[Rfam]
RNA: mir-190 microRNA precursor family
RNA sequence: AGCUCUGUCUGAUAUGUUUGAUAUUAGGUUGUUGGAUUUCAAACCCAACUGAAUGUCAAACAUUUCCCACAGUGCC
Numbered sequence: 001a002g003c004u005c006u007g008u009c010u011g012a013u014a015u016g017u018u019u020g021a022u023a024u025u026a027g028g029u030u031g032u033u034g035g036a037u038u039u040c041a042a043a044c045c046c047a048a049c050u051g052a053a054u055g056u057c058a059a060a061c062a063u064u065u066c067c068c069a070c071a072g073u074g075c076c
Stems, first nucleotide, its partner, number of pairs: 005072004011065002014063012027050005